Background:
This 81-nucleotide RNA from Lentzea albidocapillata belongs to the Rfam family "SAH (S-adenosyl-L-homocysteine) riboswitch aptamer". NCBI's taxonomy places the organism under Bacteria, Bacillati, Actinomycetota, Actinomycetes, Lentzea. Gene Ontology terms of the family: S-adenosylhomocysteine metabolic process and regulation of gene expression.

[Rfam]
RNA sequence: GAAGCCGAGAAGCGCUGCAACGGGCCUCACGCCUGCCACGCUCGGCCUCGCACCACCACGUAACAAGGGCGCUUCCGACUA
Numbered sequence: 001g002a003a004g005c006c007g008a009g010a011a012g013c014g015c016u017g018c019a020a021c022g023g024g025c026c027u028c029a030c031g032c033c034u035g036c037c038a039c040g041c042u043c044g045g046c047c048u049c050g051c052a053c054c055a056c057c058a059c060g061u062a063a064c065a066a067g068g069g070c071g072c073u074u075c076c077g078a079c080u081a
Stems, first nucleotide, its partner, number of pairs: 002048001004046005021035005